RNA: Pseudomonas sRNA P9
Organism: Pseudomonas fluorescens
RNA sequence: AGCAUUAUUACCGCCAUUCCUCAUUUGGCGGGAUAGCGCACGGCUGUACCCAAACACCCGCCCUAGAGGCGGGUUUU
Numbered sequence: 001a002g003c004a005u006u007a008u009u010a011c012c013g014c015c016a017u018u019c020c021u022c023a024u025u026u027g028g029c030g031g032g033a034u035a036g037c038g039c040a041c042g043g044c045u046g047u048a049c050c051c052a053a054a055c056a057c058c059c060g061c062c063c064u065a066g067a068g069g070c071g072g073g074u075u076u077u
Base pairs, nucleotide, nucleotide: 011031012030013029014028015027016026054076056074057073058072059071060070061069062068